[Rfam]
RNA: Eukaryotic small subunit ribosomal RNA, nucleotides 1602 to 1766
Organism: Sungouiella intermedia
RNA sequence: CCGCCCGUCGCUACUACCGAUUGAAUGGCUUAGUGAGGCCUCCGGAUUUGUCUAGUGCUGGGGGCAACCUCGGCGCGGGACGGAGAAGCUGGUCAAACUUGGUCAUUUAGAGGAAGUAAAAGUCGUAACAAGGUUUCCGUAGGUGAACCUGCGGAAGGAUCAUUA
Dot-bracket structure: (.(..((.(..((((.((..(.((((((((.(((..((((..(...(((((((.(((.((((......)))).))).)))))))...)..))))..))).)))))))))..)).))))...).))...)..).((((((((((....))))))))))........
Numbered sequence: 001c002c003g004c005c006c007g008u009c010g011c012u013a014c015u016a017c018c019g020a021u022u023g024a025a026u027g028g029c030u031u032a033g034u035g036a037g038g039c040c041u042c043c044g045g046a047u048u049u050g051u052c053u054a055g056u057g058c059u060g061g062g063g064g065c066a067a068c069c070u071c072g073g074c075g076c077g078g079g080a081c082g083g084a085g086a087a088g089c090u091g092g093u094c095a096a097a098c099u100u101g102g103u104c105a106u107u108u109a110g111a112g113g114a115a116g117u118a119a120a121a122g123u124c125g126u127a128a129c130a131a132g133g134u135u136u137c138c139g140u141a142g143g144u145g146a147a148c149c150u151g152c153g154g155a156a157g158g159a160u161c162a163u164u165a
Stems, first nucleotide, its partner, number of pairs: 001132001003129001006125002009122001012118004017113002021109001023108008032099003037094004043088001047084007055076003059072004134157010